[Rfam]
RNA: Acido-Lenti-1 RNA
RNA sequence: CCAUGGACUUGCGUCCAUGGCUUUCGUAUGUCGUGCCCGCGGCACU
Numbered sequence: 001c002c003a004u005g006g007a008c009u010u011g012c013g014u015c016c017a018u019g020g021c022u023u024u025c026g027u028a029u030g031u032c033g034u035g036c037c038c039g040c041g042g043c044a045c046u
Stems, first nucleotide, its partner, number of pairs: 001020008033045005